[Rfam]
RNA sequence: GCCUACCUUACUCGAAAUACCCGUCGAUGAAGACUACUAAAUGACGAAUCCUAAUAAACCAAUGGUUUUCAUUGCGGAUAUGAGGCAUUUGUCUGAGCGGG
Numbered sequence: 001g002c003c004u005a006c007c008u009u010a011c012u013c014g015a016a017a018u019a020c021c022c023g024u025c026g027a028u029g030a031a032g033a034c035u036a037c038u039a040a041a042u043g044a045c046g047a048a049u050c051c052u053a054a055u056a057a058a059c060c061a062a063u064g065g066u067u068u069u070c071a072u073u074g075c076g077g078a079u080a081u082g083a084g085g086c087a088u089u090u091g092u093c094u095g096a097g098c099g100g101g
Stems, first nucleotide, its partner, number of pairs: 021100004043093007050085003054081003059076001060074006
Shown here is a 101-nucleotide sequence from Caenorhabditis briggsae, a member of the family "Caenorhabditis sRNA ceN23-1". NCBI's taxonomy places the organism under Eukaryota, Metazoa, Chromadorea, Rhabditidae, Caenorhabditis. A reference for the family is Jia et al. (2007), "Systematic identification of non-coding RNA 2,2,7-trimethylguanosine cap structures in Caenorhabditis elegans", BMC Mol Biol.